[Rfam]
RNA sequence: UGUUCAAAAAGGCAAAUUUAAUACAAAUAAAGGGAGCAAAGCUGUUGCUUUUGGUAACAGGUUGGAUUUCUAAGGUAACAAAGCUGCCUCA
Number, nucleotide and partner (000 for none) at each position: 001u000002g000003u000004u000005c000006a000007a000008a000009a000010a000011g000012g037013c036014a000015a000016a000017u032018u031019u030020a000021a028022u027023a000024c000025a000026a000027a022028u021029a000030a019031a018032g017033g000034g000035a000036g013037c012038a000039a000040a085041g084042c083043u082044g000045u081046u080047g079048c075049u074050u000051u000052u000053g000054g070055u000056a068057a067058c000059a000060g000061g000062u000063u000064g000065g000066a000067u057068u056069u000070c054071u000072a000073a000074g049075g048076u000077a000078a000079c047080a046081a045082a043083g042084c041085u040086g000087c000088c000089u000090c000091a000
This 91-nucleotide RNA belongs to the Rfam family "c-di-GMP-I riboswitch aptamer". Pairs were carried over by alignment from the consensus structure, which is taken from published work. GEMM was predicted in a large-scale screen for bacterial structured RNA regulatory elements.